[Rfam]
RNA sequence: GAACAGGAUAGAGGUGCGCCUUUUAAUAGUAAUAUCGUUGAGGUUUUCGGGGCCAUCGAUACGAUAUGAAAGGAAAAGGUGCCGAAGGUAUGGGGACCCUGAAUGACCCAGAGCCUGGAUCGCCGGUUAAUAAUCGUCGGUCUGUCGUCAACAUUAGGUUGAUGGAGAGCUAUCUGUUGC
Dot-bracket structure: .....((((((....(((((((((.......(((((((......................)))))))......)))))))))...((((.(.(((.(.......).))).).))))((((((.((((.....)))).)))))).(((((((.......)))))))....)))))).....
Numbered sequence: 001g002a003a004c005a006g007g008a009u010a011g012a013g014g015u016g017c018g019c020c021u022u023u024u025a026a027u028a029g030u031a032a033u034a035u036c037g038u039u040g041a042g043g044u045u046u047u048c049g050g051g052g053c054c055a056u057c058g059a060u061a062c063g064a065u066a067u068g069a070a071a072g073g074a075a076a077a078g079g080u081g082c083c084g085a086a087g088g089u090a091u092g093g094g095g096a097c098c099c100u101g102a103a104u105g106a107c108c109c110a111g112a113g114c115c116u117g118g119a120u121c122g123c124c125g126g127u128u129a130a131u132a133a134u135c136g137u138c139g140g141u142c143u144g145u146c147g148u149c150a151a152c153a154u155u156a157g158g159u160u161g162a163u164g165g166a167g168a169g170c171u172a173u174c175u176g177u178u179g180c
Stems, first nucleotide, its partner, number of pairs: 006175006016082009032067007086116004091111001093109003097105001117143006124136004145165007
Lysine riboswitch aptamer: a 180-nucleotide RNA sequence from Mahella australiensis. Taxonomically the source falls in Mahella australiensis (Bacteria, Bacillati, Clostridia, Mahella). A search with the family's covariance model found it, with a score of 110 bits.